[Rfam]
RNA sequence: AAUGUAGGGAUCAACGUGCCCUCCCCCUCCGAAAGGAGCGGGUAACCCGUUGAAACCCCUACCCGAUUGGGAUUGGGGAUUGUAAGUGUUUCCCAUGAACGAGGA
Numbered sequence: 001a002a003u004g005u006a007g008g009g010a011u012c013a014a015c016g017u018g019c020c021c022u023c024c025c026c027c028u029c030c031g032a033a034a035g036g037a038g039c040g041g042g043u044a045a046c047c048c049g050u051u052g053a054a055a056c057c058c059c060u061a062c063c064c065g066a067u068u069g070g071g072a073u074u075g076g077g078g079a080u081u082g083u084a085a086g087u088g089u090u091u092c093c094c095a096u097g098a099a100c101g102a103g104g105a
Stems, first nucleotide, its partner, number of pairs: 004062006018047001023042002027038004069100001074095006
A member of the RNA family "Eukaryotic small subunit ribosomal RNA" from Armadillidium nasatum, 105 nucleotides of a longer RNA. The family is grouped with related families in Rfam's "SSU clan". Rfam 15.1 lists 75,755 matches to the family in 2,556 species. It scores 1585 bits against the family's covariance model. The base pairs follow the family's consensus structure, which is taken from published work.